[Rfam]
RNA sequence: AUGAAUUGCGCGGCACGUAGUUGACGAAGGUGAAGCCGCGGCAUUGAUCGAUGGCGUGAAACAGCGGGUUCCAGUCGAACAUCUUGAGCAUGAAGGGCGGCAGCGAAUUGGCCACGAACAUCUUGCCCGACGCGAUCAUGUUGGCGCGCUG
Numbered sequence: 001a002u003g004a005a006u007u008g009c010g011c012g013g014c015a016c017g018u019a020g021u022u023g024a025c026g027a028a029g030g031u032g033a034a035g036c037c038g039c040g041g042c043a044u045u046g047a048u049c050g051a052u053g054g055c056g057u058g059a060a061a062c063a064g065c066g067g068g069u070u071c072c073a074g075u076c077g078a079a080c081a082u083c084u085u086g087a088g089c090a091u092g093a094a095g096g097g098c099g100g101c102a103g104c105g106a107a108u109u110g111g112c113c114a115c116g117a118a119c120a121u122c123u124u125g126c127c128c129g130a131c132g133c134g135a136u137c138a139u140g141u142u143g144g145c146g147c148g149c150u151g
Stems, first nucleotide, its partner, number of pairs: 001031001006028002011023003035055004039050003062151005068080004085144001087142006097131001098129003101125003105121001108117003
RNA: Ruegeria cis2 sRNA